About this RNA
The record is a 97-nucleotide sequence from Chenopodium quinoa, which matches "Small nucleolar RNA Z103" in Rfam. Taxonomically the source falls in Chenopodium (Eukaryota, Viridiplantae, Streptophytina, Gunneridae). The family's RNA type in Rfam is C/D-box small nucleolar RNA. A reference for the family is Chen et al. (2003), "The high diversity of snoRNAs in plants: identification and comparative study of 120 snoRNA genes from Oryza sativa", Nucleic Acids Res. It scores 82 bits against the family's covariance model. The base pairs follow the family's consensus structure, which was predicted with PFOLD.
[Rfam]
Nucleotides: 097
Stems, first nucleotide, its partner, number of pairs: 001097001003095003
Number, partner (000 for none) and nucleotide at each position: 001097a002000c003095g004094g005093a006000a007000u008000u009000g010000a011000u012000g013000a014000u015000u016000a017000u018000u019000u020000c021000c022000c023000c024000a025000g026000a027000u028000g029000a030000u031000a032000g033000u034000c035000g036000u037000u038000g039000a040000a041000a042000a043000a044000a045000c046000u047000g048000a049000g050000c051000u052000a053000a054000u055000u056000u057000a058000a059000u060000u061000c062000u063000g064000u065000u066000u067000g068000u069000u070000g071000a072000g073000c074000a075000u076000u077000c078000a079000a080000g081000c082000c083000a084000a085000u086000u087000u088000u089000c090000u091000g092000a093005u094004c095003c096000u097001u